[Rfam]
RNA sequence: CUUAGUUAAAGGCAAACUUACCGAAAGGUAAGGACGCAAAGCUUUAGGGACUAAAGAUCUUUUGAUCUAUGUUAGCCAGCUACCUAA
Numbered sequence: 001c002u003u004a005g006u007u008a009a010a011g012g013c014a015a016a017c018u019u020a021c022c023g024a025a026a027g028g029u030a031a032g033g034a035c036g037c038a039a040a041g042c043u044u045u046a047g048g049g050a051c052u053a054a055a056g057a058u059c060u061u062u063u064g065a066u067c068u069a070u071g072u073u074a075g076c077c078a079g080c081u082a083c084c085u086a087a
Stems, first nucleotide, its partner, number of pairs: 012037002017032006040081004047077002049073003056067004